[Rfam]
A member of the RNA family "MIR6217 microRNA precursor family" from Miscanthus lutarioriparius, 228 nucleotides long.
RNA sequence: UGGCCACAAAAUAACUUAUUCUGUAGCUACUUUGAGUUACGAUAAUUACUAUGUUAAUUUACGAUAUUAUAGUAAAUCCUUACUAAGUGGUUUACUAUAACGUUAUGUUAAAUAUCCCCAUGUGUUAUAGUAAUCCAACUAUUAUAAAUAUGUAUUGACAUUAUCGUAAAUUAACAUAUAAAAUUAUCGUAAAUGGAGGUAAUCACAAAAUAACUUAUUUUAUAGCUG
Numbered sequence: 001u002g003g004c005c006a007c008a009a010a011a012u013a014a015c016u017u018a019u020u021c022u023g024u025a026g027c028u029a030c031u032u033u034g035a036g037u038u039a040c041g042a043u044a045a046u047u048a049c050u051a052u053g054u055u056a057a058u059u060u061a062c063g064a065u066a067u068u069a070u071a072g073u074a075a076a077u078c079c080u081u082a083c084u085a086a087g088u089g090g091u092u093u094a095c096u097a098u099a100a101c102g103u104u105a106u107g108u109u110a111a112a113u114a115u116c117c118c119c120a121u122g123u124g125u126u127a128u129a130g131u132a133a134u135c136c137a138a139c140u141a142u143u144a145u146a147a148a149u150a151u152g153u154a155u156u157g158a159c160a161u162u163a164u165c166g167u168a169a170a171u172u173a174a175c176a177u178a179u180a181a182a183a184u185u186a187u188c189g190u191a192a193a194u195g196g197a198g199g200u201a202a203u204c205a206c207a208a209a210a211u212a213a214c215u216u217a218u219u220u221u222a223u224a225g226c227u228g
Stems, first nucleotide, its partner, number of pairs: 001228004006223001008221007016213005022207003026203001028201006037192011050178013066164002069161002074155001080147003087142006093132011107117001